Shown here is a 130-nucleotide RNA from Quercus lobata, a member of the family "Small nucleolar RNA snoR74". The match comes from Rfam's covariance-model search (110 bits). NCBI's taxonomy places the organism under Eukaryota, Mesangiospermae, Gunneridae, fabids, Quercus. The family's RNA type in Rfam is H/ACA-box small nucleolar RNA. The family has 9 seed sequences and 1,404 matches in Rfam 15.1. The family's consensus secondary structure was predicted with WAR.
RNA sequence: AAAAAAGCAGGGACCUGUUGCCUGUGUGAACGGGCCUCUCGUAAAUGUCAGGGAUAUCGAGUUUCAUUGUUAUUGGGUGAACCUCUGUUUGUUUGUUGUGACCGAAGGUUCAGUAAAUGAUGAAACAUUU
Numbered sequence: 001a002a003a004a005a006a007g008c009a010g011g012g013a014c015c016u017g018u019u020g021c022c023u024g025u026g027u028g029a030a031c032g033g034g035c036c037u038c039u040c041g042u043a044a045a046u047g048u049c050a051g052g053g054a055u056a057u058c059g060a061g062u063u064u065c066a067u068u069g070u071u072a073u074u075g076g077g078u079g080a081a082c083c084u085c086u087g088u089u090u091g092u093u094u095g096u097u098g099u100g101a102c103c104g105a106a107g108g109u110u111c112a113g114u115a116a117a118u119g120a121u122g123a124a125a126c127a128u129u130u
Base pairs, nucleotide, nucleotide: 005048007046011037012036014034015033016032017031064123065122066121067120068119069118070117071116078112079111080110081109082108083107084106